[Rfam]
RNA sequence: AUCCAAGUGCACGGGUUUUACGUUACCAGUGAAGGUUCGCCUGAGGCAACGUUUUUGCUAGUUGAAAACUACAACUACUGACCGCUCCAUGUUGGUCUUCGGAUCGGCUGGGAAUUUUUGAACAAAAGCAAU
Numbered sequence: 001a002u003c004c005a006a007g008u009g010c011a012c013g014g015g016u017u018u019u020a021c022g023u024u025a026c027c028a029g030u031g032a033a034g035g036u037u038c039g040c041c042u043g044a045g046g047c048a049a050c051g052u053u054u055u056u057g058c059u060a061g062u063u064g065a066a067a068a069c070u071a072c073a074a075c076u077a078c079u080g081a082c083c084g085c086u087c088c089a090u091g092u093u094g095g096u097c098u099u100c101g102g103a104u105c106g107g108c109u110g111g112g113a114a115u116u117u118u119u120g121a122a123c124a125a126a127a128g129c130a131a132u
Stems, first nucleotide, its partner, number of pairs: 020052005026046002033042003086112003091108007